A member of the RNA family "azaaromatic riboswitch aptamer (yjdF RNA)" from Streptococcus downei, 98 nucleotides long. Taxonomically the source falls in Streptococcus downei (Bacteria, Bacillota, Streptococcaceae, Streptococcus). The base pairs follow the family's consensus structure, which is taken from published work.

[Rfam]
RNA sequence: UAGAGGUGAUAUAAAAACACAUUGCAGUUGGGUAGUCUGCAAGCACCUUUGGUGCCAGUAACCUUCCCUCCAGGUCGUCCCUUAUCAAAUUUUUAUCC
Numbered sequence: 001u002a003g004a005g006g007u008g009a010u011a012u013a014a015a016a017a018c019a020c021a022u023u024g025c026a027g028u029u030g031g032g033u034a035g036u037c038u039g040c041a042a043g044c045a046c047c048u049u050u051g052g053u054g055c056c057a058g059u060a061a062c063c064u065u066c067c068c069u070c071c072a073g074g075u076c077g078u079c080c081c082u083u084a085u086c087a088a089a090u091u092u093u094u095a096u097c098c
Base pairs, nucleotide, nucleotide: 004090007087008086009085010084011083022042023041024040025039026038027037043055044054045053046052047051066074067073